[Rfam]
RNA sequence: CUCGCUAUUGAUUGUCCAAACGCAAUUCUUGUCCUAUUUAAAGUCGGAAACCGAGAAUUGUGUGUGGACAUCCGUAGCUGG
Number, nucleotide and partner (000 for none) at each position: 001c000002u080003c000004g078005c077006u076007a075008u000009u000010g072011a071012u070013u000014g069015u068016c067017c066018a065019a000020a000021c062022g061023c060024a059025a058026u057027u056028c055029u054030u053031g052032u000033c000034c000035u000036a000037u000038u000039u000040a000041a000042a000043g000044u000045c000046g000047g000048a000049a000050a000051c000052c031053g030054a029055g028056a027057a026058u025059u024060g023061u022062g021063u000064g000065u018066g017067g016068a015069c014070a012071u011072c010073c000074g000075u007076a006077g005078c004079u000080g002081g000
RNA: mir-219 microRNA precursor family
Organism: Callorhinchus milii